[Rfam]
RNA sequence: GGGGUAGGGGCUCAGGGGUACAGACCUCAGCUGGAUAAUGGGAGCUGAGUGCAGAUGUUAUCUGUUCAGCCUGGGUGUGGUGGGUUGUUCCAAGAAGCAUCUGCAUGAGAAAAAACGCCUGUAUCUGAGCCUC
Numbered sequence: 001g002g003g004g005u006a007g008g009g010g011c012u013c014a015g016g017g018g019u020a021c022a023g024a025c026c027u028c029a030g031c032u033g034g035a036u037a038a039u040g041g042g043a044g045c046u047g048a049g050u051g052c053a054g055a056u057g058u059u060a061u062c063u064g065u066u067c068a069g070c071c072u073g074g075g076u077g078u079g080g081u082g083g084g085u086u087g088u089u090c091c092a093a094g095a096a097g098c099a100u101c102u103g104c105a106u107g108a109g110a111a112a113a114a115a116c117g118c119c120u121g122u123a124u125c126u127g128a129g130c131c132u133c
Stems, first nucleotide, its partner, number of pairs: 001133005